[Rfam]
RNA: mir-87 microRNA precursor family
Organism: Ditylenchus dipsaci
RNA sequence: UGCUCGCCGCCUGAAAUUUCGACUCAACCUCUGUGCUCAAUUGUCAAAAUUUUGCUUUUGACAAAGAGUGAAAUUUUGAGUAAAUGAUGUAGGUGAGCAAAGUUUCAGGUGUGCGUGCGA
Numbered sequence: 001u002g003c004u005c006g007c008c009g010c011c012u013g014a015a016a017u018u019u020c021g022a023c024u025c026a027a028c029c030u031c032u033g034u035g036c037u038c039a040a041u042u043g044u045c046a047a048a049a050u051u052u053u054g055c056u057u058u059u060g061a062c063a064a065a066g067a068g069u070g071a072a073a074u075u076u077u078g079a080g081u082a083a084a085u086g087a088u089g090u091a092g093g094u095g096a097g098c099a100a101a102g103u104u105u106c107a108g109g110u111g112u113g114c115g116u117g118c119g120a
Stems, first nucleotide, its partner, number of pairs: 002118002005115003008111007015103001017101003023097004028093003
Dot-bracket structure: .((.(((((((((((.(((...((((.(((............................................................))))))).))).).))))))).))).))..